RNA sequence: AAUAACUCCAAAGGGGAGUAGCGUCAGGAUCCAUCCUGAAACAAAGUCGUCAUUCCAUGGAACAUGUUCCAUCGGCUUUGUUGGCAUGCCAUAUGCUC
Numbered sequence: 001a002a003u004a005a006c007u008c009c010a011a012a013g014g015g016g017a018g019u020a021g022c023g024u025c026a027g028g029a030u031c032c033a034u035c036c037u038g039a040a041a042c043a044a045a046g047u048c049g050u051c052a053u054u055c056c057a058u059g060g061a062a063c064a065u066g067u068u069c070c071a072u073c074g075g076c077u078u079u080g081u082u083g084g085c086a087u088g089c090c091a092u093a094u095g096c097u098c
Stems, first nucleotide, its partner, number of pairs: 025038003040082010057072005
RNA: Manganese Mn2+ riboswitch aptamer (yybP-ykoY)